RNA sequence: GUUAUGGGGUUUGCGACCACCCCGUAAGGCCCCGGCCAAAGCAUCGCAUCCACUGACAGCUUCAGAAGGGAUGCACCAUG
Numbered sequence: 001g002u003u004a005u006g007g008g009g010u011u012u013g014c015g016a017c018c019a020c021c022c023c024g025u026a027a028g029g030c031c032c033c034g035g036c037c038a039a040a041g042c043a044u045c046g047c048a049u050c051c052a053c054u055g056a057c058a059g060c061u062u063c064a065g066a067a068g069g070g071a072u073g074c075a076c077c078a079u080g
Base pairs, nucleotide, nucleotide: 005024006023007022008021009020010019046074047073048072049071050070051069